Shown here is an 82-nucleotide RNA from Fukomys damarensis, a member of the family "mir-1343 microRNA precursor family". Rfam links the family to the GO terms miRNA-mediated post-transcriptional gene silencing and RISC complex. Pairs were carried over by alignment from the consensus structure, which was predicted with RNAalifold.

[Rfam]
RNA sequence: CUGGCAUUGGUGCUGGGGAGCAGCCCCCGGGCGGGCCUCUGCUCUGGCCUCUCCUGGGGCCCGCACUCUUGUUCUGGGCCCG
Numbered sequence: 001c002u003g004g005c006a007u008u009g010g011u012g013c014u015g016g017g018g019a020g021c022a023g024c025c026c027c028c029g030g031g032c033g034g035g036c037c038u039c040u041g042c043u044c045u046g047g048c049c050u051c052u053c054c055u056g057g058g059g060c061c062c063g064c065a066c067u068c069u070u071g072u073u074c075u076g077g078g079c080c081c082g
Stems, first nucleotide, its partner, number of pairs: 003080003007077004012072002015069004020064002023061001025059007033050005